Ribosomal S15 leader: a 122-nucleotide RNA sequence. Clan: Ribosomal Protein S15 Leader clan. The E. coli Ribosomal S15 gene 5' UTR can form two alternative structures. One that is a series of three hairpins, The other includes a pseudoknot. This structure causes translational regulation of the S15 protein. The alignment of this family contains only the final two hairpins which are conserved in other species, and also includes the complete region that forms the alternate structures. The family's consensus secondary structure is taken from published work. Rfam classes the family as a cis-regulatory leader. On this family, see Benard et al., Biochimie 1996: "Pseudoknot and translational control in the expression of the S15 ribosomal protein". Rfam links the family to the GO term regulation of translation, ncRNA-mediated.
[Rfam]
RNA sequence: UGACCUACCUGUAAAUGUGCACGGGUAGGCCAAUCUUUUUAAUUGCACAUUAUGAGGAAAAGAAAAUGGCUCUUAGUCCAACUGAAAAAGCAGCAAUUGUUACUGACUACCAACGUGAAGAA
Numbered sequence: 001u002g003a004c005c006u007a008c009c010u011g012u013a014a015a016u017g018u019g020c021a022c023g024g025g026u027a028g029g030c031c032a033a034u035c036u037u038u039u040u041a042a043u044u045g046c047a048c049a050u051u052a053u054g055a056g057g058a059a060a061a062g063a064a065a066a067u068g069g070c071u072c073u074u075a076g077u078c079c080a081a082c083u084g085a086a087a088a089a090g091c092a093g094c095a096a097u098u099g100u101u102a103c104u105g106a107c108u109a110c111c112a113a114c115g116u117g118a119a120g121a122a
Stems, first nucleotide, its partner, number of pairs: 007026006050076003054072003
Dot-bracket structure: ......((((((........)))))).......................(((.(((.............))).)))..............................................